[Rfam]
RNA sequence: GUAAAUAGAGGCGAUGGAGUUCGCCCUAAGCGCCAAUAGGCUAAUGACUCCUACCAGUAA
Numbered sequence: 001g002u003a004a005a006u007a008g009a010g011g012c013g014a015u016g017g018a019g020u021u022c023g024c025c026c027u028a029a030g031c032g033c034c035a036a037u038a039g040g041c042u043a044a045u046g047a048c049u050c051c052u053a054c055c056a057g058u059a060a
Stems, first nucleotide, its partner, number of pairs: 010025004016051006032041003
Dot-bracket structure: .........[[[[..((((((]]]]......(((....)))....)))))).........